[Rfam]
RNA: S15-Halobacteria ribosomal protein leader
RNA sequence: AGGGAACCAGCACGGCCGCAAAUCUGACUCGCUCGGCGUCGACGUCGGGCUUCGAGAUUGCGGAAGUGC
Numbered sequence: 001a002g003g004g005a006a007c008c009a010g011c012a013c014g015g016c017c018g019c020a021a022a023u024c025u026g027a028c029u030c031g032c033u034c035g036g037c038g039u040c041g042a043c044g045u046c047g048g049g050c051u052u053c054g055a056g057a058u059u060g061c062g063g064a065a066g067u068g069c
Stems, first nucleotide, its partner, number of pairs: 010069004016063006024056002031050007